A member of the RNA family "Small nucleolar RNA SNORD113/SNORD114 family" from Rhinopithecus roxellana, 72 nucleotides long.
Its family is annotated with RNA processing and nucleolus in the Gene Ontology.
Its Rfam clan is "SNORD74 clan".
Taxonomically the source falls in Rhinopithecus (Eukaryota, Craniata, Vertebrata, Tetrapoda).
The imprinted human domain at 14q32 contains two clusters of tandemly repeated small nucleolar RNAs named 14q(I) and 14q(II) snoRNAs. These two clusters are named SNORD113 and SNORD114 respectively in the HGNC approved gene symbol nomenclature. The snoRNAs found in both clusters are clearly related and are represented here by a single family. These snoRNAs are intron encoded and are processed from the tissue-specific non-coding human MEG8 RNA, which lies downstream of the imprinted genes DLK1 and GTL2. snoRNAs 14q(I) and 14q(II) differ from previously identified C/D box snoRNAs in their expression profiles and lack of complementarity to rRNA and snRNA. Homologues of these snoRNAs are found in the imprinted non-coding mouse transcript Rian, and in the rat non-coding Bsr (brain-specific repetitive) RNA.
The family's RNA type in Rfam is C/D-box small nucleolar RNA.
It scores 88 bits against the family's covariance model.
On this family, see Cavaille et al., Hum Mol Genet 2002: "Identification of tandemly-repeated C/D snoRNA genes at the imprinted human 14q32 domain reminiscent of those at the Prader-Willi/Angelman syndrome region".

[Rfam]
RNA sequence: UAGAUCAAUGAUGACUACUGGUGGCGUAUGAGUCAUAUACAAUGAAUACGUGUCUAGAACUCUGAGAUCCAA
Numbered sequence: 001u002a003g004a005u006c007a008a009u010g011a012u013g014a015c016u017a018c019u020g021g022u023g024g025c026g027u028a029u030g031a032g033u034c035a036u037a038u039a040c041a042a043u044g045a046a047u048a049c050g051u052g053u054c055u056a057g058a059a060c061u062c063u064g065a066g067a068u069c070c071a072a
Stems, first nucleotide, its partner, number of pairs: 003069004